c-di-AMP riboswitch aptamer (ydaO/yuaA leader): a 169-nucleotide RNA from Catenulispora acidiphila. Rfam 15.1 lists 7,607 matches to the family in 2,262 species. The match comes from Rfam's covariance-model search (56 bits). The organism belongs to Catenulispora acidiphila, within Bacteria.

RNA sequence: CGAGGCGGAGCGCCGAGACGGAACCGGGGACCCACCAGUCCCACCGGCCCGCAUCCACUGGGGCCAAGGGGUGAAUCGGUCCGCCUCGUACCCCCGCGCGGCGGCCUGUAGGGCACGCUUCUCAGCCCGAACCCGACAGCUAACCCGGUAGGCGGCAGGGAGAGAAGGA
Number, nucleotide and partner (000 for none) at each position: 001c151002g000003a000004g000005g000006c021007g000008g000009a000010g000011c000012g000013c000014c000015g000016a000017g000018a000019c000020g000021g006022a000023a149024c148025c147026g146027g145028g144029g000030a000031c000032c000033c068034a000035c000036c000037a000038g000039u000040c000041c000042c000043a000044c000045c000046g000047g000048c000049c000050c000051g000052c000053a000054u000055c000056c000057a000058c000059u000060g000061g000062g000063g000064c000065c000066a000067a000068g033069g134070g133071g132072u000073g000074a000075a000076u000077c108078g107079g106080u000081c000082c000083g000084c000085c000086u000087c000088g000089u000090a000091c000092c000093c000094c000095c000096g000097c000098g000099c000100g000101g000102c000103g000104g000105c000106c079107u078108g077109u000110a000111g128112g127113g126114c125115a000116c000117g000118c000119u000120u000121c000122u000123c000124a000125g114126c113127c112128c111129g000130a000131a000132c071133c070134c069135g000136a000137c000138a000139g000140c000141u000142a000143a000144c028145c027146c026147g025148g024149u023150a000151g001152g000153c000154g000155g000156c000157a000158g000159g000160g000161a000162g000163a000164g000165a000166a000167g000168g000169a000